[Rfam]
RNA sequence: UUGACUUCGCUGUUUUUUCGACCUAUCGUAAAGGAAUGAGGGUAAGGGAGGAUUGCUCCUCCCCUGGUAUCUUAGUAAGCCGAUAAGCUAAUCACUAAGAGUAUUACCAGUAUGAUGACUAGCCUCAUCAUAACCCUUUCCUUAUA
Numbered sequence: 001u002u003g004a005c006u007u008c009g010c011u012g013u014u015u016u017u018u019c020g021a022c023c024u025a026u027c028g029u030a031a032a033g034g035a036a037u038g039a040g041g042g043u044a045a046g047g048g049a050g051g052a053u054u055g056c057u058c059c060u061c062c063c064c065u066g067g068u069a070u071c072u073u074a075g076u077a078a079g080c081c082g083a084u085a086a087g088c089u090a091a092u093c094a095c096u097a098a099g100a101g102u103a104u105u106a107c108c109a110g111u112a113u114g115a116u117g118a119c120u121a122g123c124c125u126c127a128u129c130a131u132a133a134c135c136c137u138u139u140c141c142u143u144a145u146a
Stems, first nucleotide, its partner, number of pairs: 032142004038138006046063003064110004111132007
RNA: Short Intergenic Abundant RNA
Organism: Kluyvera genomosp. 3